[Rfam]
Rfam assigns this 67-nucleotide RNA sequence from Domibacillus epiphyticus to the family "Bacillaceae-1 RNA".
The family's RNA type in Rfam is small RNA.
The base pairs follow the family's consensus structure, which is taken from published work.
RNA sequence: UUUAAAGGAUCAAAGGCUGCAUUCACGUCAUGCUGCCGCAACGCCUUUGUGACCCACUUCCUGUAAC
Numbered sequence: 001u002u003u004a005a006a007g008g009a010u011c012a013a014a015g016g017c018u019g020c021a022u023u024c025a026c027g028u029c030a031u032g033c034u035g036c037c038g039c040a041a042c043g044c045c046u047u048u049g050u051g052a053c054c055c056a057c058u059u060c061c062u063g064u065a066a067c
Stems, first nucleotide, its partner, number of pairs: 011049007026038002029035001056064002